[Rfam]
RNA sequence: UUCUUAUCCAGAGAGGUGGAGGGACUGGCCCUUUGAAGCUUCAGCAACAGGUCAAUUAUAGACACUGUGCUAAUUCCAGCGGGUGAUUUAGCCUGAUAGAUAGGAC
Dot-bracket structure: .(((((((....(((((...(((.[[[[)))......)))))((((.((.(((.......)))..))))))...(]]]](((((......)))))..)))))))).
RNA: SAM riboswitch aptamer (S box leader)